[Rfam]
RNA sequence: AAGGACCUUCGGGGGAUGGUGGAAUUCCACACCGGCGGUGAUCCUCAUUUAGAGGUAAGCCCGCGAGCCCGAUAUCCGAUCGAGAAAGGCCCCGCGGUUAAAAGGCAACUGUGACCGGAAUCAGGGCCUUCAGAGAGCGGGUUGAUCCGGUGAAAGUCCGGAGCCGACAGUUAAAGUCUGGAAGGGAGAAGGAAUUU
Dot-bracket structure: ..(..(((((......(((.......))).[[((((((....................[[))))..(((((..................................................................)))))...(((((.......)))))]])).(((.....]]))).......)))))..)..
RNA: FMN riboswitch aptamer (RFN element)